[Rfam]
RNA sequence: AUCAUCUAGGGAAUCUUAUUAAAUUGCAGAUUCUCUUUUAGUAGGUCUGAGAUGAGGCCUAAGAUUCUGCGUUUCUAAUAAGCUCCCAGAUGGUGCUGC
Numbered sequence: 001a002u003c004a005u006c007u008a009g010g011g012a013a014u015c016u017u018a019u020u021a022a023a024u025u026g027c028a029g030a031u032u033c034u035c036u037u038u039u040a041g042u043a044g045g046u047c048u049g050a051g052a053u054g055a056g057g058c059c060u061a062a063g064a065u066u067c068u069g070c071g072u073u074u075c076u077a078a079u080a081a082g083c084u085c086c087c088a089g090a091u092g093g094u095g096c097u098g099c
Stems, first nucleotide, its partner, number of pairs: 003092003009086003015082007022074002026070005032064003
Record summary: This 99-nucleotide RNA from Odocoileus virginianus belongs to the Rfam family "mir-544 microRNA precursor family". The family has 16 seed sequences and 10,750 matches in Rfam 15.1. A reference for the family is Chiang et al. (2010), "Mammalian microRNAs: experimental evaluation of novel and previously annotated genes", Genes Dev. NCBI's taxonomy places the organism under Eukaryota, Opisthokonta, Craniata, Tetrapoda, Odocoileus virginianus.